[Rfam]
RNA sequence: CAGAAUAAGCUUAAGGCCAUCCAUAUAAUCCCAAGAAUAUGGCUUGGGAGUCUCUACCGAGGGGCCGUAAACUCCUCGACUAUGGAUGAGCUAGGGGGAUAU
Numbered sequence: 001c002a003g004a005a006u007a008a009g010c011u012u013a014a015g016g017c018c019a020u021c022c023a024u025a026u027a028a029u030c031c032c033a034a035g036a037a038u039a040u041g042g043c044u045u046g047g048g049a050g051u052c053u054c055u056a057c058c059g060a061g062g063g064g065c066c067g068u069a070a071a072c073u074c075c076u077c078g079a080c081u082a083u084g085g086a087u088g089a090g091c092u093a094g095g096g097g098g099a100u101a102u
Stems, first nucleotide, its partner, number of pairs: 018088008029049007058078007
RNA: Purine riboswitch aptamer
Organism: Caloramator fervidus